[Rfam]
RNA sequence: GGGGGGUUAAUGAUGGUCUGUCCCUGAACUCUGACGGAGGGGACAGUCCGGAUGUUCUGCCCUC
Numbered sequence: 001g002g003g004g005g006g007u008u009a010a011u012g013a014u015g016g017u018c019u020g021u022c023c024c025u026g027a028a029c030u031c032u033g034a035c036g037g038a039g040g041g042g043a044c045a046g047u048c049c050g051g052a053u054g055u056u057c058u059g060c061c062c063u064c
Stems, first nucleotide, its partner, number of pairs: 001064005015049002018046007029039003